mir-181 microRNA precursor family: an 80-nucleotide sequence from Cynoglossus semilaevis. Taxonomically the source falls in Cynoglossus (Eukaryota, Metazoa, Eumetazoa, Bilateria).
[Rfam]
RNA sequence: AAGUGGGGGGGAACAUUCAACGCUGUCGGUGAGUUUGUGACUCCAUGAAACCAUCGAGUGUUGAUUGUACCCUCACACUG
Numbered sequence: 001a002a003g004u005g006g007g008g009g010g011g012a013a014c015a016u017u018c019a020a021c022g023c024u025g026u027c028g029g030u031g032a033g034u035u036u037g038u039g040a041c042u043c044c045a046u047g048a049a050a051c052c053a054u055c056g057a058g059u060g061u062u063g064a065u066u067g068u069a070c071c072c073u074c075a076c077a078c079u080g
Base pairs, nucleotide, nucleotide: 002079003078004077005076007074008073014067015066017064018063019062020061021060022059026057027056028055029054030053031052033051034050035049036048